[Rfam]
Shown here is a 162-nucleotide RNA sequence from Blastococcus sp. TF02A-26, a member of the family "c-di-AMP riboswitch aptamer (ydaO/yuaA leader)".
Taxonomically the source falls in Blastococcus (Bacteria, Bacillati, Actinomycetota, Geodermatophilales).
Rfam describes the family as follows. This family represents a conserved RNA structure found upstream of the ydaO and yuaA genes in Bacillus subtilis and related genes in other bacteria. The ydaO/yuaA element is thought to act as a genetic 'off' switch for the ydaO and yuaA genes in its native state. It is believed that the element may be triggered during osmotic shock leading to activation of ydaO, a predicted amino acid transporter gene, and members of the yuaA-yubG operon which code for KtrA and KtrB K+ transporters.
RNA sequence: CGGCGGACGCCGCCGAGUCGCCCGCGAGUGAUCCUCGCGAGCGAGCCGGGGACCCACCGCAGUACUGGGGUGAAUCCCGUUCCGGACCCCGUCCGGAGCCGGUAGGGCUGCUUCCCGCCCGAACCCGUCAGCUAACUCGGUAGGCGGCCGACGGAAGAAGCA
Dot-bracket structure: ..........((((...(((.....................)))((((((....((.........))(((.....((.(((((((((...))))))))).))..((((........))))...))).........)))))).))))................